The record is a 195-nucleotide RNA, which matches "RT-15 RNA" in Rfam. The family's RNA type in Rfam is small RNA. Pairs were carried over by alignment from the consensus structure, which is taken from published work.
RNA sequence: GGGCGCCUGCAGCAUGACGGUCAAGGCCCUCACGCCCGUGCGCACAGUGAAUCUGGUCGCGCCCCUGGCCCACAAGGCCACGGACAUGCACGCCACGGUAACCGGCGCCCCCACGGGCGCAAGGACCGGUGCAGCCGCCCCGCUGAUCGCCCGCACUGGGCUUCGGCAGGCCGGCCAACACAGCGCGAUGGUUGC
Numbered sequence: 001g002g003g004c005g006c007c008u009g010c011a012g013c014a015u016g017a018c019g020g021u022c023a024a025g026g027c028c029c030u031c032a033c034g035c036c037c038g039u040g041c042g043c044a045c046a047g048u049g050a051a052u053c054u055g056g057u058c059g060c061g062c063c064c065c066u067g068g069c070c071c072a073c074a075a076g077g078c079c080a081c082g083g084a085c086a087u088g089c090a091c092g093c094c095a096c097g098g099u100a101a102c103c104g105g106c107g108c109c110c111c112c113a114c115g116g117g118c119g120c121a122a123g124g125a126c127c128g129g130u131g132c133a134g135c136c137g138c139c140c141c142g143c144u145g146a147u148c149g150c151c152c153g154c155a156c157u158g159g160g161c162u163u164c165g166g167c168a169g170g171c172c173g174g175c176c177a178a179c180a181c182a183g184c185g186c187g188a189u190g191g192u193u194g195c
Stems, first nucleotide, its partner, number of pairs: 004042003012035002015032003019028003057188006063083002066080005087133005096128004102124002105120005135174002139170002142167005151159003